[Rfam]
RNA: Small nucleolar RNA SNORA68
Organism: Oryzias latipes
RNA sequence: UGGGCGCCCUAACCCAAAGGCGGCCCCUGUCCGUGGGGCCGCUCUGUCCUGGGUGCCGACAGGAACUGGUCCCUGUCGCCUUUCUCUGAGCCGCUGUGCCUUUGAAAGUGAAUUCAGGGACCAACACCC
Numbered sequence: 001u002g003g004g005c006g007c008c009c010u011a012a013c014c015c016a017a018a019g020g021c022g023g024c025c026c027c028u029g030u031c032c033g034u035g036g037g038g039c040c041g042c043u044c045u046g047u048c049c050u051g052g053g054u055g056c057c058g059a060c061a062g063g064a065a066c067u068g069g070u071c072c073c074u075g076u077c078g079c080c081u082u083u084c085u086c087u088g089a090g091c092c093g094c095u096g097u098g099c100c101u102u103u104g105a106a107a108g109u110g111a112a113u114u115c116a117g118g119g120a121c122c123a124a125c126a127c128c129c
Base pairs, nucleotide, nucleotide: 003057004056005055006054007053008052009051019043020042021041022040023039024038025037026036027035068122069121070120071119072118073117074116080108081107082106083105084104088101090099091098